[Rfam]
RNA sequence: CUGGCACUCCCAGGCAGGUCAAGGUGUCCUACAGAAAAACCUUGGUUUAGAACGACUGGGGAUCUGG
Numbered sequence: 001c002u003g004g005c006a007c008u009c010c011c012a013g014g015c016a017g018g019u020c021a022a023g024g025u026g027u028c029c030u031a032c033a034g035a036a037a038a039a040c041c042u043u044g045g046u047u048u049a050g051a052a053c054g055a056c057u058g059g060g061g062a063u064c065u066g067g
Stems, first nucleotide, its partner, number of pairs: 001067004006063001008061004014056001017053001019045007026032002